[Rfam]
RNA sequence: UCCAGUGGUAGUCAGCUGUCCAGAGCAGUGCUGUCUCUGCGAUAGUGUUACGCUGCUGGGAGAUAAAGAUCAAUCAUUUCUUCUGGCUGCUGUUGUCACUGUUCUGGAGACAGCUGAUGCCGAAAAGAAGUGGUAUUGUGCUUCCCUGAGAGCGCACUAAAGAUUUGCUUUGCCUCUUUAGUGCUAGUCUGGAAGCAUACAUA
Numbered sequence: 001u002c003c004a005g006u007g008g009u010a011g012u013c014a015g016c017u018g019u020c021c022a023g024a025g026c027a028g029u030g031c032u033g034u035c036u037c038u039g040c041g042a043u044a045g046u047g048u049u050a051c052g053c054u055g056c057u058g059g060g061a062g063a064u065a066a067a068g069a070u071c072a073a074u075c076a077u078u079u080c081u082u083c084u085g086g087c088u089g090c091u092g093u094u095g096u097c098a099c100u101g102u103u104c105u106g107g108a109g110a111c112a113g114c115u116g117a118u119g120c121c122g123a124a125a126a127g128a129a130g131u132g133g134u135a136u137u138g139u140g141c142u143u144c145c146c147u148g149a150g151a152g153c154g155c156a157c158u159a160a161a162g163a164u165u166u167g168c169u170u171u172g173c174c175u176c177u178u179u180a181g182u183g184c185u186a187g188u189c190u191g192g193a194a195g196c197a198u199a200c201a202u203a
Stems, first nucleotide, its partner, number of pairs: 001060009011051002015046006021039005068136001071133001073131002082126001084124001087119001090116001092114001094112004099107002138198008154184003158180006
RNA: Small nucleolar RNA SNORA74